[Rfam]
Nucleotides: 121
Stems, first nucleotide, its partner, number of pairs: 004012002016041006023034004045121002048094002051091004056081001058079003062075004099118006
Number, partner (000 for none) and nucleotide at each position: 001000a002000u003000u004012g005011g006000u007000u008000g009000a010000c011005c012004c013000u014000c015000c016041g017040g018039a019038g020037u021036c022000u023034c024033u025032c026031u027000g028000c029000a030000g031026g032025g033024a034023g035000c036021g037020g038019c039018u040017c041016c042000a043000a044000a045121c046120a047000a048094c049093u050000u051091u052090c053089c054088u055000a056081a057000u058079g059078c060077a061000u062075g063074u064073u065072g066000a067000g068000c069000a070000a071000u072065c073064g074063g075062c076000a077060u078059g079058u080000g081056u082000g083000a084000a085000g086000c087000g088054a089053g090052g091051a092000a093049a094048g095000a096000a097000a098000a099118g100117g101116u102115u103114u104113c105000g106000a107000g108000u109000u110000g111000a112000a113104g114103g115102a116101a117100u118099c119000a120046u121045g
Shown here is a 121-nucleotide RNA sequence from Tangfeifania diversioriginum, a member of the family "Group II catalytic intron D1-D4-2". Rfam's curators write: Group II introns are found in rRNA, tRNA and mRNA of organelles in fungi, plants and protists, and also in mRNA in bacteria. The literature on the family includes a 2001 paper in Trends Genet by Bonen and Vogel, "The ins and outs of group II introns". Taxonomically the source falls in Tangfeifania (Bacteria, Pseudomonadati, Bacteroidia, Prolixibacteraceae). Pairs were carried over by alignment from the consensus structure. The match comes from Rfam's covariance-model search (58 bits).